[Rfam]
Rfam assigns this 75-nucleotide RNA sequence from Bucorvus abyssinicus to the family "Small nucleolar RNA SNORD26". For this family Rfam cites "A mammalian gene with introns instead of exons generating stable RNA products" (Tycowski et al., Nature, 1996). NCBI's taxonomy places the organism under Eukaryota, Metazoa, Archelosauria, Coraciimorphae, Bucorvus. Rfam links the family to the GO terms nucleolus and RNA processing. It scores 51 bits against the family's covariance model. Rfam classes the family as a C/D-box small nucleolar RNA.
RNA sequence: CUGCGGGGAUGAUCCCGGCGAACUCUCUCUUGCCGAUGGUCCCGUGGGGAAGCUCCUUACCGGCUUCUGAGCAGC
Numbered sequence: 001c002u003g004c005g006g007g008g009a010u011g012a013u014c015c016c017g018g019c020g021a022a023c024u025c026u027c028u029c030u031u032g033c034c035g036a037u038g039g040u041c042c043c044g045u046g047g048g049g050a051a052g053c054u055c056c057u058u059a060c061c062g063g064c065u066u067c068u069g070a071g072c073a074g075c
Stems, first nucleotide, its partner, number of pairs: 001074004